[Rfam]
RNA sequence: UUAACUCGAAUUUGUAUGGAGUCGGAACGGUUGCCUACUUCAGCCGCCAGGGCCGCUAUUCCAACCACAUACAAAUUUGAGUUA
Numbered sequence: 001u002u003a004a005c006u007c008g009a010a011u012u013u014g015u016a017u018g019g020a021g022u023c024g025g026a027a028c029g030g031u032u033g034c035c036u037a038c039u040u041c042a043g044c045c046g047c048c049a050g051g052g053c054c055g056c057u058a059u060u061c062c063a064a065c066c067a068c069a070u071a072c073a074a075a076u077u078u079g080a081g082u083u084a
Stems, first nucleotide, its partner, number of pairs: 008078009018068001021065002024062004029057001034052003040046001
Background: mir-2807 microRNA precursor family: an 84-nucleotide sequence from Bombyx mori. The source organism's lineage runs through Eukaryota, Bilateria, Protostomia, Obtectomera and Bombyx. On this family, see Liu et al., BMC Genomics 2010: "MicroRNAs of Bombyx mori identified by Solexa sequencing". Rfam 15.1 lists 5,120 matches to the family in 8 species.